[Rfam]
RNA sequence: UGGUGAUGUCUCCUAACCGUUAUCAAUGGAGGCACUCGAUCACACUGUGGGUGCCUUGGAUACCUUAGACACUUGUUGUCAAAAGUGGGAUGUGAGGAAGGGGUGGAUGCCCU
Numbered sequence: 001u002g003g004u005g006a007u008g009u010c011u012c013c014u015a016a017c018c019g020u021u022a023u024c025a026a027u028g029g030a031g032g033c034a035c036u037c038g039a040u041c042a043c044a045c046u047g048u049g050g051g052u053g054c055c056u057u058g059g060a061u062a063c064c065u066u067a068g069a070c071a072c073u074u075g076u077u078g079u080c081a082a083a084a085g086u087g088g089g090a091u092g093u094g095a096g097g098a099a100g101g102g103g104u105g106g107a108u109g110c111c112c113u
Base pairs, nucleotide, nucleotide: 001019002018003017004016007034008033009032010031011030012029013028035096036095037094038093039091040090041089043087044086045085046084049065050064051063052062053061055059068080069079070078071077099113100112101111102110